Overview
This 106-nucleotide RNA from Pseudomonas paraeruginosa belongs to the Rfam family "SAH (S-adenosyl-L-homocysteine) riboswitch aptamer". NCBI's taxonomy places the organism under Bacteria, Pseudomonadati, Pseudomonadota, Pseudomonadaceae, Pseudomonas paraeruginosa. The sequence is in the family's curated seed alignment.

[Rfam]
RNA sequence: CCGUUCGAGGGGCGCUGCAGCAGGCCUAGGCCUGUCAGGCUCGAACGGAGCGCGCUCUCAGGCCGGCCUCGCCGGUCUGUCAACGCACCAACGGCGCCCAUUCGCA
Numbered sequence: 001c002c003g004u005u006c007g008a009g010g011g012g013c014g015c016u017g018c019a020g021c022a023g024g025c026c027u028a029g030g031c032c033u034g035u036c037a038g039g040c041u042c043g044a045a046c047g048g049a050g051c052g053c054g055c056u057c058u059c060a061g062g063c064c065g066g067c068c069u070c071g072c073c074g075g076u077c078u079g080u081c082a083a084c085g086c087a088c089c090a091a092c093g094g095c096g097c098c099c100a101u102u103c104g105c106a
Stems, first nucleotide, its partner, number of pairs: 002047007021034005